TPP riboswitch aptamer (THI element): a 111-nucleotide RNA.

RNA sequence: AGAAUGCAAUCCGGGUGUACGACCAGAGCCCUGCAAGACUCUGUCGUUCUGAGAGAUACCGGUGAACUUGAUCUGGAUAAUACCAGCGAAAGGAGUUGCUUCUUGGAGACC
Number, nucleotide and partner (000 for none) at each position: 001a000002g000003a000004a000005u000006g099007c098008a097009a096010u095011c062012c061013g060014g059015g000016u056017g049018u000019a047020c046021g045022a044023c043024c000025a000026g000027a000028g000029c000030c000031c000032u000033g000034c000035a000036a000037g000038a000039c000040u000041c000042u000043g023044u022045c021046g020047u019048u000049c017050u000051g000052a000053g000054a000055g000056a016057u000058a000059c014060c013061g012062g011063u000064g000065a000066a000067c092068u091069u090070g000071a000072u000073c086074u085075g084076g083077a000078u000079a000080a000081u000082a000083c076084c075085a074086g073087c000088g000089a000090a069091a068092g067093g000094a000095g010096u009097u008098g007099c006100u000101u000102c000103u000104u000105g000106g000107a000108g000109a000110c000111c000